[Rfam]
Nucleotides: 072
Base pairs, nucleotide, nucleotide: 001071002070003069004068005067006066007065010025011024012023013022027043028042029041030040031039049064050063051062052061
Number, partner (000 for none) and nucleotide at each position: 001071g002070g003069g004068g005067a006066u007065g008000u009000a010025g011024c012023u013022c014000a015000g016000u017000u018000g019000g020000u021000a022013g023012a024011g025010c026000g027043c028042u029041c030040g031039c032000u033000u034000a035000g036000c037000a038000u039031g040030c041029g042028a043027g044000a045000g046000g047000u048000a049064c050063g051062g052061g053000a054000u055000c056000a057000a058000u059000a060000c061052c062051c063050c064049g065007c066006a067005u068004c069003u070002c071001c072000a
About this RNA
The family of this 72-nucleotide RNA sequence from Citrus unshiu is "tRNA". The family's consensus secondary structure is taken from published work. Transfer RNA (tRNA) molecules are approximately 80 nucleotides in length. The source organism's lineage runs through Eukaryota, Streptophyta, Embryophyta, Mesangiospermae and Citrus. The match comes from Rfam's covariance-model search (53 bits). The family's RNA type in Rfam is transfer RNA. Gene Ontology term of the family: triplet codon-amino acid adaptor activity.